Shown here is a 54-nucleotide RNA sequence from Salmo salar, a member of the family "UnaL2 LINE 3' element". A reference for the family is Baba et al. (2004), "Solution structure of an RNA stem-loop derived from the 3' conserved region of eel LINE UnaL2", RNA. The organism belongs to Salmo, within Eukaryota.
RNA sequence: UCUGUAGUAAUUUGUAAAUCGCUCUGGAUAAGAGCGUCUGCUAAAUGACUUAAA
Numbered sequence: 001u002c003u004g005u006a007g008u009a010a011u012u013u014g015u016a017a018a019u020c021g022c023u024c025u026g027g028a029u030a031a032g033a034g035c036g037u038c039u040g041c042u043a044a045a046u047g048a049c050u051u052a053a054a
Stems, first nucleotide, its partner, number of pairs: 013043001014041003020036006
Dot-bracket structure: ............((((...((((((.....))))))..))).)...........